[Rfam]
RNA sequence: GCCGGCGACACGGGGUGCCCUGCACCAGGCAGGGCUGAGAUCACACCCGUCGAACCUGAUCUCGUUAGCACGAGCGAAGGGAUGUCGCGAUGACGACGC
Numbered sequence: 001g002c003c004g005g006c007g008a009c010a011c012g013g014g015g016u017g018c019c020c021u022g023c024a025c026c027a028g029g030c031a032g033g034g035c036u037g038a039g040a041u042c043a044c045a046c047c048c049g050u051c052g053a054a055c056c057u058g059a060u061c062u063c064g065u066u067a068g069c070a071c072g073a074g075c076g077a078a079g080g081g082a083u084g085u086c087g088c089g090a091u092g093a094c095g096a097c098g099c
Stems, first nucleotide, its partner, number of pairs: 006087005011049004016043001017035007055080003061074004
RNA: TPP riboswitch aptamer (THI element)
Organism: Cellulomonas shaoxiangyii